This 71-nucleotide RNA from Alligator sinensis belongs to the Rfam family "Mammalian CPEB3 ribozyme". It scores 48 bits against the family's covariance model. The mammalian CPEB3 ribozyme is a self cleaving RNA located in the second intron of the CPEB3 gene which belongs to a family of genes regulating messenger RNA polyadenylation.

RNA sequence: AAUUGCCAUAAUGGCCAUAGCAGAAAUGCUCACGUCAUGGCCCUGAUUCUAAUGAAUCUGUGAAUUCUGCU
Numbered sequence: 001a002a003u004u005g006c007c008a009u010a011a012u013g014g015c016c017a018u019a020g021c022a023g024a025a026a027u028g029c030u031c032a033c034g035u036c037a038u039g040g041c042c043c044u045g046a047u048u049c050u051a052a053u054g055a056a057u058c059u060g061u062g063a064a065u066u067c068u069g070c071u
Stems, first nucleotide, its partner, number of pairs: 013042004019071007026038003043060001045058005
Taxonomically the source falls in Alligator (Eukaryota, Metazoa, Teleostomi, Tetrapoda). Its family is annotated with RNA nuclease activity in the Gene Ontology.